[Rfam]
RNA sequence: GGGGAGAGACUUAGAAUCCCCAUAGGGUCAGUGUGUAAAUAGCUGCGUCUUUGGCCGGGCGUAACGGUUUGUGAAUC
Dot-bracket structure: (((((...........)))))..............(((((.(.(((((((......))))))).).)))))......
Numbered sequence: 001g002g003g004g005a006g007a008g009a010c011u012u013a014g015a016a017u018c019c020c021c022a023u024a025g026g027g028u029c030a031g032u033g034u035g036u037a038a039a040u041a042g043c044u045g046c047g048u049c050u051u052u053g054g055c056c057g058g059g060c061g062u063a064a065c066g067g068u069u070u071g072u073g074a075a076u077c
Stems, first nucleotide, its partner, number of pairs: 001021005036071005042065001044063007